[Rfam]
RNA sequence: UAUGAUUGCUAACUUGUUUUUCUCCUUUUUCUUUUUUGCCUUCCCAUGAGGAGGUUUUUCGUUUUAAAAAUAAAAAGAAGACGAACAGAAAAACCUCCCUACCGAUGGGAGGUUUUUUAUUU
Numbered sequence: 001u002a003u004g005a006u007u008g009c010u011a012a013c014u015u016g017u018u019u020u021u022c023u024c025c026u027u028u029u030u031c032u033u034u035u036u037u038g039c040c041u042u043c044c045c046a047u048g049a050g051g052a053g054g055u056u057u058u059u060c061g062u063u064u065u066a067a068a069a070a071u072a073a074a075a076a077g078a079a080g081a082c083g084a085a086c087a088g089a090a091a092a093a094c095c096u097c098c099c100u101a102c103c104g105a106u107g108g109g110a111g112g113u114u115u116u117u118u119a120u121u122u
Base pairs, nucleotide, nucleotide: 016086017085018084019083021081022080023079025077026076027075028074029073030072032070033069034068036066038064042049043048050060051059052058053057090116091115092114093113094112095111096110097109098108099107